RNA sequence: UGAAUCGAUGAAGAUGAUGUGGUGUCUUACAUUCUACCGGGUCUAGAUUCUUACUCUAAUCCUUUUGUCUCAUCUAUGACCUCUAGGAGAGCAUCACAUUUUGCGAUUUCAAUGCUCAAUUCAUUGCUAUGAUG
Number, nucleotide and partner (000 for none) at each position: 001u000002g000003a000004a133005u132006c131007g130008a000009u000010g000011a000012a000013g000014a000015u000016g000017a000018u000019g000020u000021g000022g000023u000024g000025u000026c000027u000028u000029a000030c000031a000032u000033u000034c000035u000036a000037c000038c000039g000040g000041g000042u000043c000044u000045a000046g000047a000048u000049u000050c000051u000052u000053a000054c000055u000056c000057u000058a000059a000060u000061c000062c000063u000064u000065u000066u000067g000068u000069c000070u000071c000072a000073u000074c000075u000076a000077u000078g000079a000080c000081c000082u000083c000084u000085a000086g104087g000088a102089g101090a100091g099092c000093a000094u000095c000096a000097c000098a000099u091100u090101u089102u088103g000104c086105g000106a000107u000108u000109u000110c000111a000112a000113u000114g000115c000116u000117c000118a000119a000120u000121u000122c000123a000124u000125u000126g000127c000128u000129a000130u007131g006132a005133u004134g000